This 130-nucleotide RNA from Gymnodraco acuticeps belongs to the Rfam family "Small nucleolar RNA SNORA3/SNORA45 family". The members of this family belong to the H/ACA class of snoRNAs which are thought to guide the sites of modification of uridines to pseudouridines. The literature on the family includes a 2001 paper in EMBO J by Huttenhofer et al., "RNomics: an experimental approach that identifies 201 candidates for novel, small, non-messenger RNAs in mouse". The family's RNA type in Rfam is H/ACA-box small nucleolar RNA. NCBI's taxonomy places the organism under Eukaryota, Chordata, Actinopterygii, Acanthomorphata, Gymnodraco. Rfam 15.1 lists 2,080 matches to the family in 639 species.
[Rfam]
RNA sequence: GUAGAGACUCAGAGUCUCACCCUGACACUCGUGAUUGUCUUGGUGUGCUAGAGUUCUCUUAGAUUGAAGACUGGUCCUAUUCACCGACUGGCUCUUUGUAGGCCAGUCACCCACAUGGGCAGUUACAAAC
Dot-bracket structure: ..(((((((...((.(.((((..((((........))))..)))).)))..))).))))...........(((.((.........((.((((.........)))).))........)).)))........